[Rfam]
This 84-nucleotide sequence from Faecalibacterium gallinarum belongs to the Rfam family "NiCo (Nickel/Cobalt) riboswitch aptamer".
A search with the family's covariance model found it, with a score of 60 bits.
Its family is annotated with metal ion homeostasis and cobalt ion binding in the Gene Ontology.

RNA sequence: ACAGUACAAACUGAACAGGCGCUGACCAAACCGUCAUUUGCCGGGCCUCUAUGGCAGCAGAUGUCCAACAUCUGCGGGACAGUU
Numbered sequence: 001a002c003a004g005u006a007c008a009a010a011c012u013g014a015a016c017a018g019g020c021g022c023u024g025a026c027c028a029a030a031c032c033g034u035c036a037u038u039u040g041c042c043g044g045g046c047c048u049c050u051a052u053g054g055c056a057g058c059a060g061a062u063g064u065c066c067a068a069c070a071u072c073u074g075c076g077g078g079a080c081a082g083u084u
Stems, first nucleotide, its partner, number of pairs: 010083004016078001018042004023036004045055003057075006